[Rfam]
RNA sequence: UGGCAGAAUCUGUAAAGCUCAGGAGGGAUAGCGCCUAAGAAAUAGAAAUACUUUUUCUUUCCUUAAACGCUAUCUAUCCUGAGUUUCAUGGUUUCUUCCU
Numbered sequence: 001u002g003g004c005a006g007a008a009u010c011u012g013u014a015a016a017g018c019u020c021a022g023g024a025g026g027g028a029u030a031g032c033g034c035c036u037a038a039g040a041a042a043u044a045g046a047a048a049u050a051c052u053u054u055u056u057c058u059u060u061c062c063u064u065a066a067a068c069g070c071u072a073u074c075u076a077u078c079c080u081g082a083g084u085u086u087c088a089u090g091g092u093u094u095c096u097u098c099c100u
Stems, first nucleotide, its partner, number of pairs: 010091001016085009026075008
Dot-bracket structure: .........(.....(((((((((.((((((((..................................)))))))).))))))))).....).........